[Rfam]
RNA sequence: AUGGAGCUUCGACAAGGGUGUUUGACUCUACUACCCGUGAACCCCAUCAGAUGGAGAUAUGUGGUUGUAGAGUCAUGCACCUCUGCCGAGGCUCCUG
Numbered sequence: 001a002u003g004g005a006g007c008u009u010c011g012a013c014a015a016g017g018g019u020g021u022u023u024g025a026c027u028c029u030a031c032u033a034c035c036c037g038u039g040a041a042c043c044c045c046a047u048c049a050g051a052u053g054g055a056g057a058u059a060u061g062u063g064g065u066u067g068u069a070g071a072g073u074c075a076u077g078c079a080c081c082u083c084u085g086c087c088g089a090g091g092c093u094c095c096u097g
Stems, first nucleotide, its partner, number of pairs: 003095004009089003016082006023075004028070004033065003
The record is a 97-nucleotide RNA sequence from Physcomitrium patens, which matches "MIR1223 microRNA precursor family" in Rfam.
The family's consensus secondary structure was predicted with RNAalifold.
Rfam links the family to the GO terms RISC complex and miRNA-mediated post-transcriptional gene silencing.
Taxonomically the source falls in Physcomitrium (Eukaryota, Viridiplantae, Bryopsida, Funariales).
For this family Rfam cites "Common functions for diverse small RNAs of land plants" (Axtell et al., Plant Cell, 2007).